[Rfam]
RNA sequence: UACAGGUGGGCCUGAUUCUUUGCUCGGCCCGUAAUCUUAAUGUUGGAUGAGCAAAGUUUCAGGUGUGUUUGUGA
Dot-bracket structure: .((((((..((((((..((((.((((.((...............)).)))).))))..))))))..))))))..
Overview
The record is a 74-nucleotide RNA from Camponotus floridanus, which matches "mir-87 microRNA precursor family" in Rfam. A search with the family's covariance model found it, with a score of 54 bits. The family's consensus secondary structure was predicted with RNAalifold. Gene Ontology terms of the family: RISC complex and miRNA-mediated post-transcriptional gene silencing.